[Rfam]
RNA sequence: ACUCAAACUGUGGGGGCACUUUCUGUGCUACGUAGGGAAGUGCCGCCAUUUUUUGAGUGU
Numbered sequence: 001a002c003u004c005a006a007a008c009u010g011u012g013g014g015g016g017c018a019c020u021u022u023c024u025g026u027g028c029u030a031c032g033u034a035g036g037g038a039a040g041u042g043c044c045g046c047c048a049u050u051u052u053u054u055g056a057g058u059g060u
Base pairs, nucleotide, nucleotide: 001058002057003056004055005054006053007052010049011048012047013046015044016043017042018041019040020039021038022037023036